RNA sequence: GAGGAGGAGGUGGUUAAGACUUGCAGUGAUGUUUAGGAAAGUUAUCACAUGAACAUCACUUUAAGUCUGUGCUACCUUCU
Numbered sequence: 001g002a003g004g005a006g007g008a009g010g011u012g013g014u015u016a017a018g019a020c021u022u023g024c025a026g027u028g029a030u031g032u033u034u035a036g037g038a039a040a041g042u043u044a045u046c047a048c049a050u051g052a053a054c055a056u057c058a059c060u061u062u063a064a065g066u067c068u069g070u071g072c073u074a075c076c077u078u079c080u
Base pairs, nucleotide, nucleotide: 017068018067019066020065021064022063023062026059027058028057029056030055031054032053033052034051035050
RNA: mir-499 microRNA precursor family